Rfam assigns this 52-nucleotide sequence from Solanum lycopersicum to the family "MIR1886 microRNA precursor family". Rfam links the family to the GO terms RISC complex and miRNA-mediated post-transcriptional gene silencing. The organism belongs to Solanum subgen. Lycopersicon, within Eukaryota. It scores 68 bits against the family's covariance model.
[Rfam]
RNA sequence: UGAGAUGCAAUUAGCGUUUGGAUAUGCAAUUUUAUGCUGAUUUCAUCUCAUA
Number, nucleotide and partner (000 for none) at each position: 001u050002g049003a048004g047005a046006u045007g044008c000009a042010a041011u040012u039013a038014g037015c036016g035017u034018u029019u028020g027021g000022a000023u000024a000025u000026g000027c020028a019029a018030u000031u000032u000033u000034a017035u016036g015037c014038u013039g012040a011041u010042u009043u000044c007045a006046u005047c004048u003049c002050a001051u000052a000